[Rfam]
The record is a 172-nucleotide RNA from Vibrio aerogenes, which matches "FMN riboswitch aptamer (RFN element)" in Rfam.

RNA sequence: AUCGAACUUCGGGGCGGGGUGAAAUUCCCCACCGGCGGUGAUUUUGUUGCAGAUUGCGGUGGCAACUCAGCAAACAGCCCGCGAGCGCCUGAGACCAUUGAUGGCCGCAGGGACAGCAGAUCCGGUGAGAUACCGGAGCCGACGGUGAUAGUCCGGAUGAAAGAAGAUCGAC
Numbered sequence: 001a002u003c004g005a006a007c008u009u010c011g012g013g014g015c016g017g018g019g020u021g022a023a024a025u026u027c028c029c030c031a032c033c034g035g036c037g038g039u040g041a042u043u044u045u046g047u048u049g050c051a052g053a054u055u056g057c058g059g060u061g062g063c064a065a066c067u068c069a070g071c072a073a074a075c076a077g078c079c080c081g082c083g084a085g086c087g088c089c090u091g092a093g094a095c096c097a098u099u100g101a102u103g104g105c106c107g108c109a110g111g112g113a114c115a116g117c118a119g120a121u122c123c124g125g126u127g128a129g130a131u132a133c134c135g136g137a138g139c140c141g142a143c144g145g146u147g148a149u150a151g152u153c154c155g156g157a158u159g160a161a162a163g164a165a166g167a168u169c170g171a172c
Stems, first nucleotide, its partner, number of pairs: 003170003007166004017029003031152002033141002035082004085117002121137005143155003